[Rfam]
Shown here is a 107-nucleotide RNA sequence from Cognatundibacterium oligocarboniphilum, a member of the family "Manganese Mn2+ riboswitch aptamer (yybP-ykoY)". Rfam describes the family as follows. This RNA was originally discovered in E. coli during a large scale screen and was named SraF. The family was later found to exist upstream of related families of protein genes in many bacteria, including the the yybP and ykoK genes in B. subtilis.
RNA sequence: CUCACUUUCAUUGGGGAGUAGCCUGCCCUGGCCAUCCGGGGAAAUCGCAUCAACAUACUUGACCGCAGGUCAUGGUGCGAUUGGCUUUGCAUAUACGUGCAGAGUUU
Numbered sequence: 001c002u003c004a005c006u007u008u009c010a011u012u013g014g015g016g017a018g019u020a021g022c023c024u025g026c027c028c029u030g031g032c033c034a035u036c037c038g039g040g041g042a043a044a045u046c047g048c049a050u051c052a053a054c055a056u057a058c059u060u061g062a063c064c065g066c067a068g069g070u071c072a073u074g075g076u077g078c079g080a081u082u083g084g085c086u087u088u089g090c091a092u093a094u095a096c097g098u099g100c101a102g103a104g105u106u107u
Base pairs, nucleotide, nucleotide: 026041027040028039043082044081045080046079047078048077049076050075051074052073060072061071062070063069064068